[Rfam]
Nucleotides: 087
Stems, first nucleotide, its partner, number of pairs: 002086005008080007016072009027061003
Number, partner (000 for none) and nucleotide at each position: 001000u002086u003085g004084u005083g006082c007000c008080u009079g010078g011077c012076u013075c014074c015000u016072u017071g018070u019069a020068u021067g022066c023065c024064a025000c026000a027061c028060a029059u030000g031000g032000a033000c034000a035000c036000c037000a038000a039000u040000c041000u042000u043000u044000g045000g046000g047000u048000g049000a050000u051000u052000g053000g054000u055000g056000a057000c058000u059029g060028u061027g062000g063000g064024u065023g066022g067021u068020g069019u070018g071017c072016a073000a074014g075013g076012a077011g078010c079009c080008a081000a082006g083005c084004a085003u086002g087000c
The record is an 87-nucleotide sequence from Musa acuminata, which matches "mir-160 microRNA precursor family" in Rfam. Rfam links the family to the GO terms miRNA-mediated post-transcriptional gene silencing and RISC complex.